A member of the RNA family "c-di-AMP riboswitch aptamer (ydaO/yuaA leader)" from Actinomadura sp. KC345, 136 nucleotides long. The match comes from Rfam's covariance-model search (63 bits). The base pairs follow the family's consensus structure. Gene Ontology terms of the family: regulation of gene expression and cyclic-di-AMP binding.

RNA sequence: GCCCGAAAGGCGCGGCGGGCGCGGAGCCGGGGACCCACGCUUUCCUUCGGGGUGAAUCGGCCUGCCCAGCGGGCCGUAGGGCGGCUUCCACGCCCGAACCCGUCAGCUAACCCGGUAGGCGGCAUGGAAGUCAGGA
Number, nucleotide and partner (000 for none) at each position: 001g000002c024003c023004c000005g000006a000007a000008a000009g000010g000011c000012g000013c000014g000015g000016c000017g000018g000019g000020c000021g000022c000023g003024g002025a000026g116027c115028c114029g113030g112031g111032g000033a000034c000035c000036c049037a000038c000039g000040c000041u000042u000043u000044c000045c000046u000047u000048c000049g036050g101051g100052g099053u000054g000055a000056a000057u000058c076059g075060g074061c073062c000063u000064g000065c000066c000067c000068a000069g000070c000071g000072g000073g061074c060075c059076g058077u000078a000079g095080g094081g093082c092083g000084g000085c000086u000087u000088c000089c000090a000091c000092g082093c081094c080095c079096g000097a000098a000099c052100c051101c050102g000103u000104c000105a000106g000107c000108u000109a000110a000111c031112c030113c029114g028115g027116u026117a000118g000119g000120c000121g000122g000123c000124a000125u000126g000127g000128a000129a000130g000131u000132c000133a000134g000135g000136a000